This 224-nucleotide RNA sequence from Vombatus ursinus belongs to the Rfam family "Small nucleolar RNA SNORD17". NCBI's taxonomy places the organism under Eukaryota, Sarcopterygii, Amniota, Vombatidae, Vombatus. The family's consensus secondary structure was predicted with RNAalifold.

RNA sequence: GUGAAAUGACGACGAAGUUUAUCCAUUCUCUGAGAUCACUGUACACUGACCUUCUUAUAGUGCUGGGUUCCUGUUUCAGGAACUCUGUGCCAUAUAGUCUCCAAAUGCCCAGCGGUCUUGCAGUGUUCUACUGUAGACAGUUGGUGGCAUUUAUGAAGGAGUGUAUGGUGUCAGCAGAGAUGGAGGUUUCCUCUUGCAAAGAUGAAUGAUGGGAGUCUGAUCAC
Numbered sequence: 001g002u003g004a005a006a007u008g009a010c011g012a013c014g015a016a017g018u019u020u021a022u023c024c025a026u027u028c029u030c031u032g033a034g035a036u037c038a039c040u041g042u043a044c045a046c047u048g049a050c051c052u053u054c055u056u057a058u059a060g061u062g063c064u065g066g067g068u069u070c071c072u073g074u075u076u077c078a079g080g081a082a083c084u085c086u087g088u089g090c091c092a093u094a095u096a097g098u099c100u101c102c103a104a105a106u107g108c109c110c111a112g113c114g115g116u117c118u119u120g121c122a123g124u125g126u127u128c129u130a131c132u133g134u135a136g137a138c139a140g141u142u143g144g145u146g147g148c149a150u151u152u153a154u155g156a157a158g159g160a161g162u163g164u165a166u167g168g169u170g171u172c173a174g175c176a177g178a179g180a181u182g183g184a185g186g187u188u189u190c191c192u193c194u195u196g197c198a199a200a201g202a203u204g205a206a207u208g209a210u211g212g213g214a215g216u217c218u219g220a221u222c223a224c
Stems, first nucleotide, its partner, number of pairs: 011222002017216004024208005030201002034197001039174003044170005051163001052160005057154002060091001064087003067083006094151001097148003109144001112141002115138003119135007177195004182190003

Gene Ontology terms of the family: RNA processing and nucleolus. A search with the family's covariance model found it, with a score of 107 bits.